[Rfam]
RNA sequence: UCGCAUCCGCCAACCGGUUCAGCCGUGUCGCGGAAGGUUUUCCAAACCAGCUAAUGUUUUCCCAAGGGAAACGAAAGUAGCG
Number, nucleotide and partner (000 for none) at each position: 001u000002c082003g081004c080005a000006u034007c033008c032009g031010c030011c000012a000013a000014c000015c025016g024017g023018u022019u000020c000021a000022g018023c017024c016025g015026u000027g000028u000029c000030g010031c009032g008033g007034a006035a000036g048037g047038u046039u045040u000041u000042c000043c000044a000045a039046a038047c037048c036049a000050g078051c077052u076053a000054a000055u000056g072057u071058u070059u069060u068061c067062c066063c000064a000065a000066g062067g061068g060069a059070a058071a057072c056073g000074a000075a000076a052077g051078u050079a000080g004081c003082g002
This 82-nucleotide sequence from Xylophilus sp. Leaf220 belongs to the Rfam family "SucA RNA motif". The family's RNA type in Rfam is cis-regulatory element. A search with the family's covariance model found it, with a score of 78 bits. Rfam links the family to the GO term regulation of translation.